[Rfam]
Nucleotides: 093
Stems, first nucleotide, its partner, number of pairs: 002092003026055005033046002
Number, partner (000 for none) and nucleotide at each position: 001000a002092g003091a004090u005000a006000g007000a008000u009000g010000a011000u012000g013000c014000c015000u016000c017000c018000a019000u020000c021000a022000a023000u024000a025000c026055c027054a028053u029052u030051c031000c032000g033046u034045g035000g036000a037000a038000a039000g040000c041000u042000g043000a044000a045034c046033a047000a048000a049000a050000a051030g052029a053028g054027u055026g056000a057000g058000a059000a060000c061000u062000c063000a064000c065000u066000a067000u068000a069000g070000u071000c072000a073000u074000u075000c076000u077000c078000a079000u080000c081000g082000a083000a084000a085000u086000u087000g088000a089000g090004g091003u092002c093000c
The record is a 93-nucleotide RNA sequence from Puma concolor, which matches "Small nucleolar RNA SNORD116" in Rfam. The base pairs follow the family's consensus structure, which was predicted with PFOLD. A reference for the family is Cavaille et al. (2000), "Identification of brain-specific and imprinted small nucleolar RNA genes exhibiting an unusual genomic organization", Proc Natl Acad Sci U S A. Rfam classes the family as a C/D-box small nucleolar RNA. The organism belongs to Puma, within Eukaryota. Rfam links the family to the GO terms nucleolus and RNA processing.